The record is a 151-nucleotide RNA from Aphanomyces euteiches, which matches "U12 minor spliceosomal RNA" in Rfam.
Rfam classes the family as a spliceosomal small nuclear RNA.
The pairing is the family consensus, mapped onto this sequence.
Rfam 15.1 lists 2,106 matches to the family in 1,170 species.

RNA sequence: UUGGCUUAAACUCAAUGAGUAAGGAAACUAACUCCCUACCUGACAAGUAGGGAACCCAAAGAUCUUUUUCUUUGGUAAUUUAUGUGGGAUAUGGAAUGGUUUGAACACCUGGUCGCUACUUUUGACUGGAGUGGGCGAGCCGGUCCCCUCA
Number, nucleotide and partner (000 for none) at each position: 001u000002u000003g000004g000005c023006u022007u021008a020009a000010a000011c000012u000013c000014a000015a000016u000017g000018a000019g000020u008021a007022a006023g005024g000025a000026a000027a000028c000029u000030a000031a000032c000033u053034c052035c051036c050037u049038a048039c047040c000041u000042g000043a000044c000045a000046a000047g039048u038049a037050g036051g035052g034053a033054a000055c000056c000057c074058a073059a072060a071061g070062a000063u000064c000065u000066u000067u000068u000069u000070c061071u060072u059073u058074g057075g000076u000077a000078a000079u000080u000081u000082a000083u000084g000085u000086g150087g149088g148089a000090u000091a000092u000093g146094g145095a144096a000097u142098g141099g140100u000101u000102u135103g000104a000105a132106c131107a000108c129109c128110u000111g127112g126113u125114c124115g123116c000117u000118a000119c000120u000121u000122u000123u115124g114125a113126c112127u111128g109129g108130a000131g106132u105133g000134g000135g102136c000137g000138a000139g000140c099141c098142g097143g000144u095145c094146c093147c000148c088149u087150c086151a000